[Rfam]
MIR2275 microRNA precursor family: an 86-nucleotide sequence from Triticum aestivum. Pairs were carried over by alignment from the consensus structure, which was predicted with RNAalifold.
RNA sequence: CAGAUGAAUUUGAGUGUUGGAUGGGACCAAAUCUUACCGCCGGGUGUGGCAAGAUUUGGUUUCCUCCAAUAUCUUAUGUUCAUAUG
Dot-bracket structure: ...(((((..((((.((((((.((((((((.((...................)).)))))))).))))))..))))..)))))...